Description: ASpks TB sRNA: a 72-nucleotide RNA sequence from Actinoplanes regularis. The base pairs follow the family's consensus structure, which is taken from published work.
RNA sequence: CUUCAGCGAGCCCAGCCACAACGGCUGCUCCGCGGGGCGCUGACCGUAGGUGGCCAGCAAUGCCUGCGCCUC
Number, nucleotide and partner (000 for none) at each position: 001c000002u000003u000004c000005a000006g000007c000008g000009a000010g000011c000012c000013c000014a026015g025016c024017c023018a000019c000020a000021a000022c000023g017024g016025c015026u014027g000028c000029u000030c000031c068032g067033c066034g000035g000036g000037g000038c062039g061040c057041u056042g055043a000044c053045c052046g051047u000048a000049g000050g000051u046052g045053g044054c000055c042056a041057g040058c000059a000060a000061u039062g038063c000064c000065u000066g033067c032068g031069c000070c000071u000072c000